[Rfam]
Rfam assigns this 75-nucleotide sequence from Mesorhabditis belari to the family "mir-153 microRNA precursor family".
RNA sequence: ACAAAAAAAACUUUUGCGACUACGCGACUGUACGAGGGGUCGUACAGUCGCGUAGUCGCAAAAGUUUUUUUUUGU
Numbered sequence: 001a002c003a004a005a006a007a008a009a010a011c012u013u014u015u016g017c018g019a020c021u022a023c024g025c026g027a028c029u030g031u032a033c034g035a036g037g038g039g040u041c042g043u044a045c046a047g048u049c050g051c052g053u054a055g056u057c058g059c060a061a062a063a064g065u066u067u068u069u070u071u072u073u074g075u
Base pairs, nucleotide, nucleotide: 002074003073004072005071006070007069008067009066010065011064012063013062014061015060016059017058018057019056020055023052024051025050026049027048028047029046
Dot-bracket structure: .(((((((((((((((((((..(((((((................)))))))..))))))))))))).)))))).

A search with the family's covariance model found it, with a score of 55 bits.